[Rfam]
The family of this 92-nucleotide sequence from Poecilia reticulata is "mir-146 microRNA precursor family".
Lineage of the source: Eukaryota > Actinopterygii > Eurypterygia > Acanthomorphata > Poecilia.

RNA sequence: AUAAGUGCUCCGCUGUGAGAACUGAAUUCCAUAGAUGGUGGCAUGUAAAGAUGUCAUCUAUGGAUCCAGUUCUUUUGGCGUGGUACUGGUUU
Numbered sequence: 001a002u003a004a005g006u007g008c009u010c011c012g013c014u015g016u017g018a019g020a021a022c023u024g025a026a027u028u029c030c031a032u033a034g035a036u037g038g039u040g041g042c043a044u045g046u047a048a049a050g051a052u053g054u055c056a057u058c059u060a061u062g063g064a065u066c067c068a069g070u071u072c073u074u075u076u077g078g079c080g081u082g083g084u085a086c087u088g089g090u091u092u
Base pairs, nucleotide, nucleotide: 008083009082011080012079013078018073019072020071021070022069023068024067033059034058035057036056
The family's consensus secondary structure was predicted with WAR.